RNA sequence: CGAACGAAAGGGCAAAAUCAUUGAAAAGUGAUGACGCAAAACUAUAGGGGCUAAAGUUAUGAAACUAUGCUAGCCAGUUGCCGAA
Numbered sequence: 001c002g003a004a005c006g007a008a009a010g011g012g013c014a015a016a017a018u019c020a021u022u023g024a025a026a027a028g029u030g031a032u033g034a035c036g037c038a039a040a041a042c043u044a045u046a047g048g049g050g051c052u053a054a055a056g057u058u059a060u061g062a063a064a065c066u067a068u069g070c071u072a073g074c075c076a077g078u079u080g081c082c083g084a085a
Stems, first nucleotide, its partner, number of pairs: 012037002017032006040079004047075002049071003056065003
Notes:
This 85-nucleotide RNA sequence from Halalkalibacter krulwichiae belongs to the Rfam family "c-di-GMP-I riboswitch aptamer". A search with the family's covariance model found it, with a score of 79 bits. Lineage of the source: Bacteria > Bacillota > Bacilli > Bacillaceae > Halalkalibacter. The family's consensus secondary structure is taken from published work.